RNA: Purine riboswitch aptamer
Organism: Tumebacillus flagellatus
RNA sequence: ACAAUGGAACCCGUUGAGACUCGUAUACGCUGGGAAUAUGGCUCAGUGUCUCUACCGGUACCCGUAAAGUGCCGACUACGUGUCCUGUGAACCUGAAA
Numbered sequence: 001a002c003a004a005u006g007g008a009a010c011c012c013g014u015u016g017a018g019a020c021u022c023g024u025a026u027a028c029g030c031u032g033g034g035a036a037u038a039u040g041g042c043u044c045a046g047u048g049u050c051u052c053u054a055c056c057g058g059u060a061c062c063c064g065u066a067a068a069g070u071g072c073c074g075a076c077u078a079c080g081u082g083u084c085c086u087g088u089g090a091a092c093c094u095g096a097a098a
Stems, first nucleotide, its partner, number of pairs: 018084003022080004030046005056074006